[Rfam]
RNA sequence: GGUCGGGGCCUUGCCUUGACUGGGGGCAAGAUCCUCUUUAGACUCUUGUACCCCUAAAUUUGGCGGGAAUUCGUUCCUGCCAUUUUGCUUUUCUUGCAAGACAAUAGCGUCGCAAGACAACAGUGGAGCUAGUAGA
Numbered sequence: 001g002g003u004c005g006g007g008g009c010c011u012u013g014c015c016u017u018g019a020c021u022g023g024g025g026g027c028a029a030g031a032u033c034c035u036c037u038u039u040a041g042a043c044u045c046u047u048g049u050a051c052c053c054c055u056a057a058a059u060u061u062g063g064c065g066g067g068a069a070u071u072c073g074u075u076c077c078u079g080c081c082a083u084u085u086u087g088c089u090u091u092u093c094u095u096g097c098a099a100g101a102c103a104a105u106a107g108c109g110u111c112g113c114a115a116g117a118c119a120a121c122a123g124u125g126g127a128g129c130u131a132g133u134a135g136a
Stems, first nucleotide, its partner, number of pairs: 004018006022053003026049006034041002061082009103133001105131004109118003
Dot-bracket structure: ...((((((...))))))...(((.((((((..((....))..)))))).))).......(((((((((....)))))))))....................(.(((((((....))).........)))).)...

A member of the RNA family "Pseudomonas rpsL leader" from Pseudomonas fluorescens, 136 nucleotides long. For this family Rfam cites "Premature terminator analysis sheds light on a hidden world of bacterial transcriptional attenuation" (Naville and Gautheret, Genome Biol, 2010). The organism belongs to Pseudomonas fluorescens, within Bacteria. It is one of the family's seed sequences.